Record summary:
A member of the RNA family "Eukaryotic small subunit ribosomal RNA" from Acanthosepion pharaonis, 600 nucleotides of a longer RNA.
RNA sequence: AAAGCUUAAGCCAUGCAAGUGUAAGUUCACGCCACGCAUUAGAACGGGCGAAACCGCGAAUGGCUCAGGAACCGGACCUAAUCCUCGGGACCGUAAUCCUCCUCGGAGGCGAUGGAUAACUGUGGCAAUUCUAGAGCUAAUACAUGUGACACAGGCCGCGAUCGGUCGGCGCGUCGCCGUCGCCUGCGUGCCGUCACGCGCGUGGGCACCCGCGUCGACCGUUACGGGUCGCGGCGCUACAUAUUAGACUGAGACCGAUGCGCGUCAUUCCGUCCUCUCGUCGUGGUCGUCGUUGUCGUCACUGUCGCCUUGAGCGGCGGUCGGCGGCGGCGUUUCGCGGCGGGGCCAAAGGGCGGCGCGCUCCGCUUUGGUGACUCUGGAUAACUCACUGGUCGAUCGCACUGGCUUUCACGCCUGGCGACGGGUCUCUCGAGGGUCCGCCCUAUCAACUGUCGACGGUCGGUUAAGUGCCUACCGUGGUUACUACGGGUAACGGGGAAUCGGGGUUCGAUUCCGGAGAGGGAGCAUGCGAAACGGCUACCACAUCCAAGGAAGGCAGCAGGCGCGCAAAUUACCCACUCCCGGCACGGGGAGGUAGUG
Numbered sequence: 001a002a003a004g005c006u007u008a009a010g011c012c013a014u015g016c017a018a019g020u021g022u023a024a025g026u027u028c029a030c031g032c033c034a035c036g037c038a039u040u041a042g043a044a045c046g047g048g049c050g051a052a053a054c055c056g057c058g059a060a061u062g063g064c065u066c067a068g069g070a071a072c073c074g075g076a077c078c079u080a081a082u083c084c085u086c087g088g089g090a091c092c093g094u095a096a097u098c099c100u101c102c103u104c105g106g107a108g109g110c111g112a113u114g115g116a117u118a119a120c121u122g123u124g125g126c127a128a129u130u131c132u133a134g135a136g137c138u139a140a141u142a143c144a145u146g147u148g149a150c151a152c153a154g155g156c157c158g159c160g161a162u163c164g165g166u167c168g169g170c171g172c173g174u175c176g177c178c179g180u181c182g183c184c185u186g187c188g189u190g191c192c193g194u195c196a197c198g199c200g201c202g203u204g205g206g207c208a209c210c211c212g213c214g215u216c217g218a219c220c221g222u223u224a225c226g227g228g229u230c231g232c233g234g235c236g237c238u239a240c241a242u243a244u245u246a247g248a249c250u251g252a253g254a255c256c257g258a259u260g261c262g263c264g265u266c267a268u269u270c271c272g273u274c275c276u277c278u279c280g281u282c283g284u285g286g287u288c289g290u291c292g293u294u295g296u297c298g299u300c301a302c303u304g305u306c307g308c309c310u311u312g313a314g315c316g317g318c319g320g321u322c323g324g325c326g327g328c329g330g331c332g333u334u335u336c337g338c339g340g341c342g343g344g345g346c347c348a349a350a351g352g353g354c355g356g357c358g359c360g361c362u363c364c365g366c367u368u369u370g371g372u373g374a375c376u377c378u379g380g381a382u383a384a385c386u387c388a389c390u391g392g393u394c395g396a397u398c399g400c401a402c403u404g405g406c407u408u409u410c411a412c413g414c415c416u417g418g419c420g421a422c423g424g425g426u427c428u429c430u431c432g433a434g435g436g437u438c439c440g441c442c443c444u445a446u447c448a449a450c451u452g453u454c455g456a457c458g459g460u461c462g463g464u465u466a467a468g469u470g471c472c473u474a475c476c477g478u479g480g481u482u483a484c485u486a487c488g489g490g491u492a493a494c495g496g497g498g499a500a501u502c503g504g505g506g507u508u509c510g511a512u513u514c515c516g517g518a519g520a521g522g523g524a525g526c527a528u529g530c531g532a533a534a535c536g537g538c539u540a541c542c543a544c545a546u547c548c549a550a551g552g553a554a555g556g557c558a559g560c561a562g563g564c565g566c567g568c569a570a571a572u573u574a575c576c577c578a579c580u581c582c583c584g585g586c587a588c589g590g591g592g593a594g595g596u597a598g599u600g
Stems, first nucleotide, its partner, number of pairs: 003599001004566001010564003014561003019057002025054002031049002064519003073440003078435002082433002088428004112145003120136002123133003155235005162228002242383004254372004345354003397421004402417001404415002442490003449481003456478005462472002494516004498509004521542002524539003544555001546553002572597001574596003580592005

Source information: Rfam links the family to the GO terms ribosome and structural constituent of ribosome.